[Rfam]
RNA sequence: CCUGCAGACAUUUUUGGGGAUUUUCCCAGGGUCUCUACAGGCAGAGACCCUGGGAAAAUCCCCCAAAAAGUCUGCAGG
Dot-bracket structure: (((((((((.((...(((((((((((((((..((((......))))..)))))))))))))))...)).)))))))))
About this RNA:
Shown here is a 78-nucleotide sequence from Pseudonaja textilis, a member of the family "Epstein-Barr virus stable intronic sequence RNA 2". It scores 42 bits against the family's covariance model. The family has 2 seed sequences and 171 matches in Rfam 15.1. The family's RNA type in Rfam is non-coding RNA gene. Pairs were carried over by alignment from the consensus structure.